[Rfam]
RNA: Bacterial RNase P class A
RNA sequence: CGAGUAAGCGAGGCAAUCGCCGGUGCAGCACCGAAAGGUCGCACGGGAGGAAAGUCCGAGCUCCACAGGGCGUGGUGCUGGGUAACCCCCAGUGGGAGCAAUCCUAAGGAAAGUGCCACAGAAAUGGAGACCGCCGAUGGGAGCAGUGAUGCUUCACAGGCAAGGAUGCAACGGUGCGGUAAGAGCGCACCAGCGGCGCGGUGACGCGUCGGCUAGGUAAACCCCACCUGGAGCAAGACCGCAUAGGAGUGCAUUGUGGUGACCCGCCACGCACUCGGGUAGGUUGCUUGAGUGGCGCAGAGAUGCGUCGCCUAGAUAGAUGAUUGCCACCUCAAUUCGUGCGAGGCCAUGAACGUUGAUGGCUGUCUGAGUACGUGAGGAGACAGAACUCGGCUUAUUGCUUGCUCGCGCU
Numbered sequence: 001c002g003a004g005u006a007a008g009c010g011a012g013g014c015a016a017u018c019g020c021c022g023g024u025g026c027a028g029c030a031c032c033g034a035a036a037g038g039u040c041g042c043a044c045g046g047g048a049g050g051a052a053a054g055u056c057c058g059a060g061c062u063c064c065a066c067a068g069g070g071c072g073u074g075g076u077g078c079u080g081g082g083u084a085a086c087c088c089c090c091a092g093u094g095g096g097a098g099c100a101a102u103c104c105u106a107a108g109g110a111a112a113g114u115g116c117c118a119c120a121g122a123a124a125u126g127g128a129g130a131c132c133g134c135c136g137a138u139g140g141g142a143g144c145a146g147u148g149a150u151g152c153u154u155c156a157c158a159g160g161c162a163a164g165g166a167u168g169c170a171a172c173g174g175u176g177c178g179g180u181a182a183g184a185g186c187g188c189a190c191c192a193g194c195g196g197c198g199c200g201g202u203g204a205c206g207c208g209u210c211g212g213c214u215a216g217g218u219a220a221a222c223c224c225c226a227c228c229u230g231g232a233g234c235a236a237g238a239c240c241g242c243a244u245a246g247g248a249g250u251g252c253a254u255u256g257u258g259g260u261g262a263c264c265c266g267c268c269a270c271g272c273a274c275u276c277g278g279g280u281a282g283g284u285u286g287c288u289u290g291a292g293u294g295g296c297g298c299a300g301a302g303a304u305g306c307g308u309c310g311c312c313u314a315g316a317u318a319g320a321u322g323a324u325u326g327c328c329a330c331c332u333c334a335a336u337u338c339g340u341g342c343g344a345g346g347c348c349a350u351g352a353a354c355g356u357u358g359a360u361g362g363c364u365g366u367c368u369g370a371g372u373a374c375g376u377g378a379g380g381a382g383a384c385a386g387a388a389c390u391c392g393g394c395u396u397a398u399u400g401c402u403u404g405c406u407c408g409c410g411c412u
Stems, first nucleotide, its partner, number of pairs: 001408011012328007020047002023044004028039001052396003056393005061233004068265003074228004078092005093107001094105004108224002113222002115218003131165002133161003138156004173191006193213001194211007237285004247276006256270005292311008